[Rfam]
RNA: t44 RNA
Organism: Pseudohaemophilus paraphrohaemolyticus
RNA sequence: UUAUUUUUAACACUAAAACACACAUCUAUCAUCAAACUAGAAAUUGGGGUGCUACUUUGUGGUCGGUUUUCUAGGAUAGAUGGAGGCUGAAC
Number, nucleotide and partner (000 for none) at each position: 001u000002u000003a000004u000005u000006u000007u000008u000009a000010a000011c000012a000013c000014u000015a000016a000017a000018a000019c000020a000021c000022a000023c082024a081025u080026c079027u078028a077029u076030c075031a000032u000033c000034a000035a000036a000037c000038u073039a072040g071041a070042a069043a067044u066045u065046g064047g000048g000049g000050u000051g063052c062053u061054a060055c059056u000057u000058u000059g055060u054061g053062g052063u051064c046065g045066g044067u043068u000069u042070u041071c040072u039073a038074g000075g030076a029077u028078a027079g026080a025081u024082g023083g000084a000085g000086g000087c000088u000089g000090a000091a000092c000